UnaL2 LINE 3' element: a 54-nucleotide RNA from Synaphobranchus kaupii.

RNA sequence: AAAAAUUUAAUAUGUAAGUCGCUCUGGAUAAGAGCAUCUGCUAAAUGCCUGUAA
Numbered sequence: 001a002a003a004a005a006u007u008u009a010a011u012a013u014g015u016a017a018g019u020c021g022c023u024c025u026g027g028a029u030a031a032g033a034g035c036a037u038c039u040g041c042u043a044a045a046u047g048c049c050u051g052u053a054a
Stems, first nucleotide, its partner, number of pairs: 013043001014041003021035005
The eel long interspersed element (LINE) UnaL2 and its partner short interspersed element (SINE) share a conserved 3' tail containing a stem-loop that is critical for their retrotransposition. The match comes from Rfam's covariance-model search (64 bits). The organism belongs to Synaphobranchus, within Eukaryota.